[Rfam]
Notes
A member of the RNA family "Bacillaceae-1 RNA" from Texcoconibacillus texcoconensis, 67 nucleotides long. Lineage of the source: Bacteria > Bacillati > Bacillota > Bacilli > Texcoconibacillus.
RNA sequence: AAAAGUAGAACUUCGAUUAAAUUCCCCGCGUCCUGCGGGAACAUCGAAGUCACCACAUCCUUGUGGA
Numbered sequence: 001a002a003a004a005g006u007a008g009a010a011c012u013u014c015g016a017u018u019a020a021a022u023u024c025c026c027c028g029c030g031u032c033c034u035g036c037g038g039g040a041a042c043a044u045c046g047a048a049g050u051c052a053c054c055a056c057a058u059c060c061u062u063g064u065g066g067a
Stems, first nucleotide, its partner, number of pairs: 011049007025039005053066004

The family's consensus secondary structure is taken from published work. A search with the family's covariance model found it, with a score of 62 bits.